RNA sequence: ACUCGUAUAGCGUGUAAACUCGAUUACAGCCUGAAGGUAUGGCUGUAUUGUAUGGUUACCGUAAGACGCAUUCCAAGAAGUUCGUCCUGUAGACAUAAGAAAUACCCCAUCUUUUCAGCAACAACGCCCCCUGGGGCAAUUCGUGUUUGUAUUACAGGAUUUUAAGCAAUGUCUAACACCACCACUGGUACCGUAAAGUUCUUCAACGAAACUAAAGGCUUCGGCUUCAUCGAGCAAGAGUCUGGCCCUGAUGUGUUUGUACACUUCAGCGCUAUCCAGUCAGAAGGUUUCCGUACCCUGGCCGAAGGCCAGAAAGUACAGUUCACCGUGACUCAAGGCCAGAAAGGCCUGCAGGCUGAGAACGUUGUAGCUAUCUAAGCUAAACGACCAGUUCUGUCGCGGCGGGGUGCAUACCCCGCCGCACCCU
Numbered sequence: 001a002c003u004c005g006u007a008u009a010g011c012g013u014g015u016a017a018a019c020u021c022g023a024u025u026a027c028a029g030c031c032u033g034a035a036g037g038u039a040u041g042g043c044u045g046u047a048u049u050g051u052a053u054g055g056u057u058a059c060c061g062u063a064a065g066a067c068g069c070a071u072u073c074c075a076a077g078a079a080g081u082u083c084g085u086c087c088u089g090u091a092g093a094c095a096u097a098a099g100a101a102a103u104a105c106c107c108c109a110u111c112u113u114u115u116c117a118g119c120a121a122c123a124a125c126g127c128c129c130c131c132u133g134g135g136g137c138a139a140u141u142c143g144u145g146u147u148u149g150u151a152u153u154a155c156a157g158g159a160u161u162u163u164a165a166g167c168a169a170u171g172u173c174u175a176a177c178a179c180c181a182c183c184a185c186u187g188g189u190a191c192c193g194u195a196a197a198g199u200u201c202u203u204c205a206a207c208g209a210a211a212c213u214a215a216a217g218g219c220u221u222c223g224g225c226u227u228c229a230u231c232g233a234g235c236a237a238g239a240g241u242c243u244g245g246c247c248c249u250g251a252u253g254u255g256u257u258u259g260u261a262c263a264c265u266u267c268a269g270c271g272c273u274a275u276c277c278a279g280u281c282a283g284a285a286g287g288u289u290u291c292c293g294u295a296c297c298c299u300g301g302c303c304g305a306a307g308g309c310c311a312g313a314a315a316g317u318a319c320a321g322u323u324c325a326c327c328g329u330g331a332c333u334c335a336a337g338g339c340c341a342g343a344a345a346g347g348c349c350u351g352c353a354g355g356c357u358g359a360g361a362a363c364g365u366u367g368u369a370g371c372u373a374u375c376u377a378a379g380c381u382a383a384a385c386g387a388c389c390a391g392u393u394c395u396g397u398c399g400c401g402g403c404g405g406g407g408u409g410c411a412u413a414c415c416c417c418g419c420c421g422c423a424c425c426c427u
Stems, first nucleotide, its partner, number of pairs: 004022002006018001008016002031234002041228002045226001046217001048215001054213004060208003065204002068202001069171004074166001085159007095115001097114003126137003173188003241330001243328003250258002263317004271310001272308002276301004283296001285294001336350005351374001353372001356370003360366001376390001379388001381386001396424002399422010
Shown here is a 427-nucleotide RNA sequence from Aestuariirhabdus litorea, a member of the family "cspA thermoregulator". Rfam 15.1 lists 2,094 matches to the family in 1,285 species. On this family, see Giuliodori et al., Mol Cell 2010: "The cspA mRNA is a thermosensor that modulates translation of the cold-shock protein CspA". It scores 83 bits against the family's covariance model. Gene Ontology terms of the family: regulation of translation and response to temperature stimulus. The organism belongs to Aestuariirhabdus, within Bacteria.